[Rfam]
RNA sequence: CGGUGAGGUAGAGGUGCAAUUAAUAUAAGUAAUCAACAGGAGAAUGACACCUAUGAUUGUUGAUGAAAGGAUUAGUUGCCGAAGCGUAAUAAGCUGUCAAUCUUAUUAUUGCUGGGAUGUCUUCUGAAAAAGAAGCAUACUGUCAUGCUAUUACAAAAGCAUGGAGGACUACUGAUCGA
Numbered sequence: 001c002g003g004u005g006a007g008g009u010a011g012a013g014g015u016g017c018a019a020u021u022a023a024u025a026u027a028a029g030u031a032a033u034c035a036a037c038a039g040g041a042g043a044a045u046g047a048c049a050c051c052u053a054u055g056a057u058u059g060u061u062g063a064u065g066a067a068a069g070g071a072u073u074a075g076u077u078g079c080c081g082a083a084g085c086g087u088a089a090u091a092a093g094c095u096g097u098c099a100a101u102c103u104u105a106u107u108a109u110u111g112c113u114g115g116g117a118u119g120u121c122u123u124c125u126g127a128a129a130a131a132g133a134a135g136c137a138u139a140c141u142g143u144c145a146u147g148c149u150a151u152u153a154c155a156a157a158a159g160c161a162u163g164g165a166g167g168a169c170u171a172c173u174g175a176u177c178g179a
Base pairs, nucleotide, nucleotide: 007173008172009171010170011169016079017078018077019076020075021074022073023072024071032064033063034062035061036060037059038058039057083113084112085111086110087108088107089106090105091104092103093102114141115140117138118137119136120135122134123133124132125131143164144163145162146161147160148159149158
A member of the RNA family "Lysine riboswitch aptamer" from Ornithinibacillus caprae, 179 nucleotides long. The organism belongs to Ornithinibacillus, within Bacteria. Gene Ontology term of the family: lysine biosynthetic process. The match comes from Rfam's covariance-model search (126 bits). Riboswitches are metabolite binding domains within certain messenger RNAs that serve as precision sensors for their corresponding targets. Allosteric rearrangement of mRNA structure is mediated by ligand binding, and this results in modulation of gene expression. This family includes riboswitches that sense lysine in a number of genes involved in lysine metabolism, including lysC.